[Rfam]
RNA sequence: GGGUCGGAAGAGGUGCGGUGGGACGUGUCUCAAGAAUUGACCAGGAUUUACCGCUCUUAUGGGCGCGCAUCACGGCCCCGGUGAUGGCGUG
Numbered sequence: 001g002g003g004u005c006g007g008a009a010g011a012g013g014u015g016c017g018g019u020g021g022g023a024c025g026u027g028u029c030u031c032a033a034g035a036a037u038u039g040a041c042c043a044g045g046a047u048u049u050a051c052c053g054c055u056c057u058u059a060u061g062g063g064c065g066c067g068c069a070u071c072a073c074g075g076c077c078c079c080g081g082u083g084a085u086g087g088c089g090u091g
Stems, first nucleotide, its partner, number of pairs: 002042004010031008064091005069085005
Source information
Shown here is a 91-nucleotide RNA sequence from Roseobacter sp. GAI101, a member of the family "Rhodo-rpoB RNA". Taxonomically the source falls in Roseobacter (Bacteria, Pseudomonadota, Alphaproteobacteria, Roseobacteraceae).